The record is an 84-nucleotide RNA from Ureibacillus endophyticus, which matches "Group II catalytic intron D1-D4-1" in Rfam. The match comes from Rfam's covariance-model search (78 bits). Lineage of the source: Bacteria > Bacillati > Bacilli > Caryophanaceae > Ureibacillus.

[Rfam]
RNA sequence: UAACCUACUUGGUGACAAGUAGCUGAACUGUCAGAAGUCAGCAGAGGUCAUAGUACGAAUUGGUCUAGAACAAUUCGGAAGGAC
Dot-bracket structure: ((..(((((((....))))))).))............((....)).(((......((((((..........))))))....)))